[Rfam]
RNA sequence: ACUCGAUAAUGGCAAACCCGUCGAAAGCCGGGGACGCAAAACCACUGGUCUAACGGCGUCUGACGCCUAUGACGGCAGGGUCGCCGAA
Numbered sequence: 001a002c003u004c005g006a007u008a009a010u011g012g013c014a015a016a017c018c019c020g021u022c023g024a025a026a027g028c029c030g031g032g033g034a035c036g037c038a039a040a041a042c043c044a045c046u047g048g049u050c051u052a053a054c055g056g057c058g059u060c061u062g063a064c065g066c067c068u069a070u071g072a073c074g075g076c077a078g079g080g081u082c083g084c085c086g087a088a
Stems, first nucleotide, its partner, number of pairs: 012037002017032004022027001041081003045078003048073003055067004
Background:
Rfam assigns this 88-nucleotide RNA from Massilia psychrophila to the family "c-di-GMP-I riboswitch aptamer". GEMM was predicted in a large-scale screen for bacterial structured RNA regulatory elements. The base pairs follow the family's consensus structure, which is taken from published work. Taxonomically the source falls in Massilia (Bacteria, Pseudomonadati, Pseudomonadota, Betaproteobacteria).